[Rfam]
Nucleotides: 081
Stems, first nucleotide, its partner, number of pairs: 008019004037066009
Number, partner (000 for none) and nucleotide at each position: 001000c002000g003000u004000u005000g006000a007000u008019g009018c010017c011016c012000a013000c014000u015000a016011g017010g018009g019008c020000g021000u022000u023000u024000c025000c026000u027000c028000c029000c030000u031000u032000g033000a034000c035000u036000a037066g038065g039064c040063c041062c042061g043060g044059c045058c046000a047000c048000c049000a050000a051000u052000c053000u054000u055000u056000g057000g058045g059044g060043c061042c062041g063040g064039g065038c066037c067000c068000c069000u070000u071000u072000c073000a074000a075000a076000a077000u078000u079000u080000u081000g
Makes More Granules Regulator RNA (mmgR): an 81-nucleotide RNA sequence from Afipia sp. GAS231. Its Rfam clan is "suhB sRNA clan". The literature on the family includes a 2018 paper in Microbiology by Ceizel Borella et al., "Expression of the small regulatory RNA gene mmgR is regulated negatively by AniA and positively by NtrC in Sinorhizobium meliloti 2011". Rfam's curators write: SuhB later renamed mmgR (makes more granules regulator) was a putative non-coding RNA found multiple times in the Agrobacterium tumefaciens genome and related alpha-proteobacteria. Other non-coding RNAs uncovered in the same analysis include: speF, ybhL, metA, and serC.Several studies inSinorhizobium meliloti showed that suhB element is indeed a non-coding RNA:firstly it was detected on Northern blot and called Sm8RNA, secondly in an RNAseq study referred to as SmelC689.The mutant phenotype's (strain lacking the small RNA) cytoplasm contains higher content of polyhydroxybutyrate (PBH)storage granules than wild type strain. The sRNA is required to limit the PBH intracellular accumulation when the nitrogen-fixing Sinorhizobium meliloti is under condition of surplus carbon in relation to nitrogen. It has been renamed to mmgR. Further study confirmed that mmgR fine-tunes the regulation of PBH storage.Northern blot confirmed the expression of the sRNA in other rhizobia species. MmgR homologues were found in most alpha-proteobacteria.